[Rfam]
RNA sequence: GUGAGCUCUCAGCUUUGAGAACUGAAUUCCAAGGGUUGCUGGUCUGAGCUCAGCUCCUGGAACUCAGUUCUUAGGGCUGGAUGCUCCAU
Numbered sequence: 001g002u003g004a005g006c007u008c009u010c011a012g013c014u015u016u017g018a019g020a021a022c023u024g025a026a027u028u029c030c031a032a033g034g035g036u037u038g039c040u041g042g043u044c045u046g047a048g049c050u051c052a053g054c055u056c057c058u059g060g061a062a063c064u065c066a067g068u069u070c071u072u073a074g075g076g077c078u079g080g081a082u083g084c085u086c087c088a089u
Stems, first nucleotide, its partner, number of pairs: 008080002013075001018071008033056004
Shown here is an 89-nucleotide sequence from Megalops atlanticus, a member of the family "mir-146 microRNA precursor family". Gene Ontology terms of the family: RISC complex and miRNA-mediated post-transcriptional gene silencing. A reference for the family is Lagos-Quintana et al. (2002), "Identification of tissue-specific microRNAs from mouse", Curr Biol. The family has 33 seed sequences and 1,617 matches in Rfam 15.1. The family's consensus secondary structure was predicted with WAR.